[Rfam]
RNA sequence: CCACAUCCGAAAUGCCUGCCGACGUUGUCGGCGACAUGCCCAGGUAGCCCCGGUCUUCAAGGCUACGGCGCAGUCCACUGCGCUGACCGAAACCCGUUCGCCUCGCAUCCUGGCCGCGAACGGUCACUGCAAUCGCGGUGAUGGAUGC
Numbered sequence: 001c002c003a004c005a006u007c008c009g010a011a012a013u014g015c016c017u018g019c020c021g022a023c024g025u026u027g028u029c030g031g032c033g034a035c036a037u038g039c040c041c042a043g044g045u046a047g048c049c050c051c052g053g054u055c056u057u058c059a060a061g062g063c064u065a066c067g068g069c070g071c072a073g074u075c076c077a078c079u080g081c082g083c084u085g086a087c088c089g090a091a092a093c094c095c096g097u098u099c100g101c102c103u104c105g106c107a108u109c110c111u112g113g114c115c116g117c118g119a120a121c122g123g124u125c126a127c128u129g130c131a132a133u134c135g136c137g138g139u140g141a142u143g144g145a146u147g148c
Base pairs, nucleotide, nucleotide: 012037013036014035015033018032019031020030021029022028023027044066045065046064047063048062049061052088053087054086055085067084068083069082070081071080072079073078116148117147118146123142124141125140126139127138128137129136130135
The record is a 148-nucleotide RNA sequence from Acidovorax sp. JS42, which matches "radC RNA" in Rfam. The organism belongs to Acidovorax, within Bacteria. The sequence is in the family's curated seed alignment.